[Rfam]
RNA sequence: UUGCCCUCUUAGAGCUGGUGGUGCUUUAAGUGGCCAAUACAGAGGGGUAGAGAAAUUCUCUUUUAAACCCAGAGGCAAGGAUGACACUUUCCUCUGGAUCCUGUCAGGAGGAACAAAU
Number, nucleotide and partner (000 for none) at each position: 001u000002u049003g048004c047005c046006c045007u044008c000009u042010u041011a000012g000013a000014g038015c000016u036017g035018g000019u030020g000021g000022u000023g000024c000025u000026u000027u000028a000029a000030g019031u000032g000033g000034c000035c017036a016037a000038u014039a000040c000041a010042g009043a000044g007045g006046g005047g004048u003049a002050g000051a000052g000053a000054a000055a000056u112057u000058c110059u109060c108061u107062u106063u000064u000065a000066a000067a000068c000069c097070c096071a095072g094073a093074g092075g091076c000077a089078a088079g087080g085081a000082u000083g000084a000085c080086a000087c079088u078089u077090u000091c075092c074093u073094c072095u071096g070097g069098a000099u000100c000101c000102u000103g000104u000105c000106a062107g061108g060109a059110g058111g000112a056113a000114c000115a000116a000117a000118u000
The record is a 118-nucleotide RNA sequence from Anolis carolinensis, which matches "Small nucleolar RNA SNORA26" in Rfam. About the family: The snoRNA HBI-6 belong to the H/ACA family of snoRNAs, guiding the pseudouridylation of position U4522 if the 28S rRNA. HBI-6 is the human orthologue of mouse MBI-6 snoRNA. The family is grouped with related families in Rfam's "SNORA27 clan".